mir-1759 microRNA precursor family: a 74-nucleotide RNA sequence from Thryothorus ludovicianus. Pairs were carried over by alignment from the consensus structure, which was predicted with RNAalifold.
RNA sequence: CCUGUUUUAGGGUAGGAGGAGAGAGGUGUCACUUUGCGAGCUGCUACCUCUCCCAUUCUGUCCUCUGCAGGAGC
Numbered sequence: 001c002c003u004g005u006u007u008u009a010g011g012g013u014a015g016g017a018g019g020a021g022a023g024a025g026g027u028g029u030c031a032c033u034u035u036g037c038g039a040g041c042u043g044c045u046a047c048c049u050c051u052c053c054c055a056u057u058c059u060g061u062c063c064u065c066u067g068c069a070g071g072a073g074c
Stems, first nucleotide, its partner, number of pairs: 002073002005070002008067003011063002014059004018054002021052008030043002033040002
Dot-bracket structure: .((.((.(((((.((((((.((((((((.((.((....)).)).)))))))))).))))..)).))).)).)).